[Rfam]
RNA sequence: AAACUUUUGUGACUUGCUGAAACGGGACUAAUCUCCUCACCGAGGCUAAGCAAGUAAAAUACGCCUCUCAUAUCCUUACCUGAGGGUGGUAAGGAAAUAAGUACCUCC
Numbered sequence: 001a002a003a004c005u006u007u008u009g010u011g012a013c014u015u016g017c018u019g020a021a022a023c024g025g026g027a028c029u030a031a032u033c034u035c036c037u038c039a040c041c042g043a044g045g046c047u048a049a050g051c052a053a054g055u056a057a058a059a060u061a062c063g064c065c066u067c068u069c070a071u072a073u074c075c076u077u078a079c080c081u082g083a084g085g086g087u088g089g090u091a092a093g094g095a096a097a098u099a100a101g102u103a104c105c106u107c108c
Base pairs, nucleotide, nucleotide: 013054014053015052016051017050018049042067043066044065045064046063074094075093076092077091078090079089080088
PhotoRC-II RNA: a 108-nucleotide RNA sequence. Rfam classes the family as a cis-regulatory element. Pairs were carried over by alignment from the consensus structure, which is taken from published work.